[Rfam]
RNA sequence: UUGCGAUGUAGCAUGCCCGUUUGGUGCUUAACUCUGAUGUAUUAAUUGUUAUUUAAUUACUUUUGGGCAAUGGGGUGUUACAGA
Numbered sequence: 001u002u003g004c005g006a007u008g009u010a011g012c013a014u015g016c017c018c019g020u021u022u023g024g025u026g027c028u029u030a031a032c033u034c035u036g037a038u039g040u041a042u043u044a045a046u047u048g049u050u051a052u053u054u055a056a057u058u059a060c061u062u063u064u065g066g067g068c069a070a071u072g073g074g075g076u077g078u079u080a081c082a083g084a
Stems, first nucleotide, its partner, number of pairs: 007082008016074006